[Rfam]
RNA sequence: CGAGUACUCCGGGGUCGGUGCAAUUCCGAACCGGCGGUGAGAGUCCGCGACCCGUCCGCCAGACGCGGACGGCUGAUCCGGUGGGAAUCCGGAACCGACGGUGAGAGUCCGGAUGGGAGGAGUGCGGA
Dot-bracket structure: ...(((((((.....(((.......))).[[((((((.....[[))))...((.................))....(((((.......)))))]])).(((.....]]))).......)))))))...
Numbered sequence: 001c002g003a004g005u006a007c008u009c010c011g012g013g014g015u016c017g018g019u020g021c022a023a024u025u026c027c028g029a030a031c032c033g034g035c036g037g038u039g040a041g042a043g044u045c046c047g048c049g050a051c052c053c054g055u056c057c058g059c060c061a062g063a064c065g066c067g068g069a070c071g072g073c074u075g076a077u078c079c080g081g082u083g084g085g086a087a088u089c090c091g092g093a094a095c096c097g098a099c100g101g102u103g104a105g106a107g108u109c110c111g112g113a114u115g116g117g118a119g120g121a122g123u124g125c126g127g128a
Stems, first nucleotide, its partner, number of pairs: 004125007016028003030108002032097002034048004043095002052072002077093005099111003
Background
A member of the RNA family "FMN riboswitch aptamer (RFN element)" from Pauljensenia hongkongensis, 128 nucleotides long. Taxonomically the source falls in Pauljensenia (Bacteria, Bacillati, Actinomycetota, Actinomycetaceae). A search with the family's covariance model found it, with a score of 96 bits.